[Rfam]
RNA sequence: UGGGGACCCCGCAGCCUCCCCACCAGAUGGAUGUCCAUCCAAGUGUGC
Number, nucleotide and partner (000 for none) at each position: 001u022002g021003g020004g019005g018006a017007c000008c000009c000010c000011g048012c047013a046014g000015c000016c000017u006018c005019c004020c003021c002022a001023c000024c000025a000026g039027a038028u037029g036030g035031a000032u000033g000034u000035c030036c029037a028038u027039c026040c000041a000042a000043g000044u000045g000046u013047g012048c011
chrB-b RNA: a 48-nucleotide RNA. The family's RNA type in Rfam is cis-regulatory element. The family's consensus secondary structure is taken from published work.